[Rfam]
RNA sequence: CACCGAGUCCGAGGCUCCGGGAGUUUCCGGGGCCUGGUGCAAGAGGGA
Number, nucleotide and partner (000 for none) at each position: 001c000002a000003c000004c000005g000006a000007g000008u000009c000010c000011g000012a000013g034014g033015c032016u031017c030018c029019g028020g027021g000022a000023g000024u000025u000026u000027c020028c019029g018030g017031g016032g015033c014034c013035u000036g000037g000038u000039g000040c000041a000042a000043g000044a000045g000046g000047g000048a000